[Rfam]
RNA sequence: AUGGCGGAAACCGAAAAGCCAACAAUGAGUAGGUA
Dot-bracket structure: .((((....[[[.....))))..........]]].